[Rfam]
Shown here is a 76-nucleotide RNA sequence from Oryzias latipes, a member of the family "Small nucleolar RNA SNORD47". The sequence is in the family's curated seed alignment. The literature on the family includes a 2001 paper in EMBO J by Huttenhofer et al., "RNomics: an experimental approach that identifies 201 candidates for novel, small, non-messenger RNAs in mouse". The organism belongs to Oryzias, within Eukaryota.

RNA sequence: AACCGAUGAUGAAACGAUUUUGCCAAAUGACUCCUGCUGAUUAUAACCCUUUACCGUUCCAUUUUUUUUUGAGGUU
Numbered sequence: 001a002a003c004c005g006a007u008g009a010u011g012a013a014a015c016g017a018u019u020u021u022g023c024c025a026a027a028u029g030a031c032u033c034c035u036g037c038u039g040a041u042u043a044u045a046a047c048c049c050u051u052u053a054c055c056g057u058u059c060c061a062u063u064u065u066u067u068u069u070u071g072a073g074g075u076u
Stems, first nucleotide, its partner, number of pairs: 001076004